[Rfam]
RNA sequence: UCCUGAGCGCGUGUUUCAGCACCACGUUGCGGAAGCUCACGCCCUUCAACCGCGCGGUGCGGAUGUAUUGCUGGGUCAUCACCUCGGCCAUGCUGGCCCGGGUCAUCCGCGCGAUGUAGCCCAUGCCGUAAAGCGCGAUGGUCAGGACCGGCAGGAAGAAAUUGUCGAAGGUCGCGGAUUC
Numbered sequence: 001u002c003c004u005g006a007g008c009g010c011g012u013g014u015u016u017c018a019g020c021a022c023c024a025c026g027u028u029g030c031g032g033a034a035g036c037u038c039a040c041g042c043c044c045u046u047c048a049a050c051c052g053c054g055c056g057g058u059g060c061g062g063a064u065g066u067a068u069u070g071c072u073g074g075g076u077c078a079u080c081a082c083c084u085c086g087g088c089c090a091u092g093c094u095g096g097c098c099c100g101g102g103u104c105a106u107c108c109g110c111g112c113g114a115u116g117u118a119g120c121c122c123a124u125g126c127c128g129u130a131a132a133g134c135g136c137g138a139u140g141g142u143c144a145g146g147a148c149c150g151g152c153a154g155g156a157a158g159a160a161a162u163u164g165u166c167g168a169a170g171g172u173c174g175c176g177g178a179u180u181c
Stems, first nucleotide, its partner, number of pairs: 004141001006139001008137005014131002016128001019126003028123002031120001038113001040111003046105001048103001050101003054097001055075001059071004082096002145181003148177001149174004154165001156163002
Dot-bracket structure: ...(.(.(((((.(((..(((......((.(......(.(((...(.(.(((.((...((((.....))))...)......((...........))).))).).)...))).)......).))))).).)).))))).).)...((((((((.(.((....)).).....))))..).)))
Ruegeria cis52 sRNA: a 181-nucleotide RNA sequence from Palleronia pontilimi. The family's consensus secondary structure was predicted with RNAfold. Rfam links the family to the GO term regulation of gene expression. A reference for the family is Rivers et al. (2016), "Experimental Identification of Small Non-Coding RNAs in the Model Marine Bacterium Ruegeria pomeroyi DSS-3", Front Microbiol. The organism belongs to Palleronia, within Bacteria. It scores 130 bits against the family's covariance model.